Source information: This 48-nucleotide RNA from Corythaeola cristata belongs to the Rfam family "Guanidine-II riboswitch aptamer (mini-ykkC)". Rfam links the family to the GO term regulation of gene expression. The family has 72 seed sequences and 1,589 matches in Rfam 15.1. Rfam describes the family as follows. Simpler in structure and has fewer highly conserved nucleotide positions than the ykkC-yxkD leader. Despite this each of its two stem-loop structures directly bind free guanidine. Therefore, mini-ykkC RNA motif represents a distinct class of guanidine-sensing RNAs. Its crystal structure was also determined.
RNA sequence: CCCCGUGGACGACCAUGCGGUGAGCCAAUUUUCGGCGGGACGACCCGC
Numbered sequence: 001c002c003c004c005g006u007g008g009a010c011g012a013c014c015a016u017g018c019g020g021u022g023a024g025c026c027a028a029u030u031u032u033c034g035g036c037g038g039g040a041c042g043a044c045c046c047g048c
Base pairs, nucleotide, nucleotide: 001020002019004017005016006015007014008013035048036047037046038045039044
Description
Pairs were carried over by alignment from the consensus structure, which is taken from published work.